[Rfam]
RNA sequence: ACAAAAUAAAACAACGAUUCUCGUAUAAAGCCGGGGAUAUGGCCUGGAAGUUUCUACCCAAAAACCAUAAAUUUUUGGACUACGAGUGAGCUGAAAGCGGAA
Numbered sequence: 001a002c003a004a005a006a007u008a009a010a011a012c013a014a015c016g017a018u019u020c021u022c023g024u025a026u027a028a029a030g031c032c033g034g035g036g037a038u039a040u041g042g043c044c045u046g047g048a049a050g051u052u053u054c055u056a057c058c059c060a061a062a063a064a065c066c067a068u069a070a071a072u073u074u075u076u077g078g079a080c081u082a083c084g085a086g087u088g089a090g091c092u093g094a095a096a097g098c099g100g101a102a
Base pairs, nucleotide, nucleotide: 018088020086021085022084023083024082025081031047032046033045034044035043058078059077060076061075062074063073064072

Annotation
This 102-nucleotide sequence from Paenibacillus oceani belongs to the Rfam family "Purine riboswitch aptamer". Rfam describes the family as follows. Riboswitches are metabolite binding domains within certain messenger RNAs that serve as precision sensors for their corresponding targets. The family's consensus secondary structure is taken from published work. NCBI's taxonomy places the organism under Bacteria, Bacillati, Bacillota, Bacilli, Paenibacillus.